[Rfam]
Yersinia sRNA 276: a 192-nucleotide RNA sequence from Proteus myxofaciens.
The family's RNA type in Rfam is antisense RNA.
Taxonomically the source falls in Proteus myxofaciens (Bacteria, Pseudomonadota, Enterobacterales, Proteus).

RNA sequence: AAUCGACAUUAAAGAUUCAUUUUGCGAGCCUUGGCCGACAGCAAGAUAAGCCGUCAUGUUCAGUUCUUUCAUUUGCUCUUCGCCAAUAACACGCGUUGAGACAUGAGGUGCUGUAUCUGCUAAUUGGCGAGCUUGAGAGGCUAAAUAAGCUGCAUUACAAAUAUUCGGUGGCAUAUUUGCAAGAUCUUUACA
Numbered sequence: 001a002a003u004c005g006a007c008a009u010u011a012a013a014g015a016u017u018c019a020u021u022u023u024g025c026g027a028g029c030c031u032u033g034g035c036c037g038a039c040a041g042c043a044a045g046a047u048a049a050g051c052c053g054u055c056a057u058g059u060u061c062a063g064u065u066c067u068u069u070c071a072u073u074u075g076c077u078c079u080u081c082g083c084c085a086a087u088a089a090c091a092c093g094c095g096u097u098g099a100g101a102c103a104u105g106a107g108g109u110g111c112u113g114u115a116u117c118u119g120c121u122a123a124u125u126g127g128c129g130a131g132c133u134u135g136a137g138a139g140g141c142u143a144a145a146u147a148a149g150c151u152g153c154a155u156u157a158c159a160a161a162u163a164u165u166c167g168g169u170g171g172c173a174u175a176u177u178u179g180c181a182a183g184a185u186c187u188u189u190a191c192a
Stems, first nucleotide, its partner, number of pairs: 005186002012032003016028003020024001034042002050059002062077003079131009092119002095116002100112001102110002133160003137156002140153002164183002167180001